[Rfam]
About this RNA
tRNA: a 74-nucleotide sequence from Desulfomicrobium baculatum. Rfam links the family to the GO term triplet codon-amino acid adaptor activity. Rfam describes the family as follows. Transfer RNA (tRNA) molecules are approximately 80 nucleotides in length. Their secondary structure includes four short double-helical elements and three loops (D, anti-codon, and T loops). Further hydrogen bonds mediate the characteristic L-shaped molecular structure. tRNAs have two regions of fundamental functional importance: the anti-codon, which is responsible for specific mRNA codon recognition, and the 3' end, to which the tRNAs corresponding amino acid is attached (by aminoacyl-tRNA synthetases). tRNAs cope with the degeneracy of the genetic code in two manners: having more than one tRNA (with a specific anti-codon) for a particular amino acid; and 'wobble' base-pairing, i.e. permitting non-standard base-pairing at the 3rd anti-codon position. The family's RNA type in Rfam is transfer RNA.

Nucleotides: 074
Stems, first nucleotide, its partner, number of pairs: 001073007010026004029043004050066005
Number, partner (000 for none) and nucleotide at each position: 001073g002072c003071g004070c005069c006068c007067g008000u009000a010026g011025c012024u013023c014000a015000g016000u017000u018000g019000g020000a021000u022000a023013g024012a025011g026010u027000g028000c029043c030042u031041g032040a033000c034000u035000a036000c037000g038000a039000a040032u041031c042030a043029g044000u045000a046000g047000g048000u049000c050066g051065c052064a053063u054062g055000u056000u057000c058000g059000a060000a061000u062054c063053a064052u065051g066050c067007c068006g069005g070004g071003c072002g073001c074000a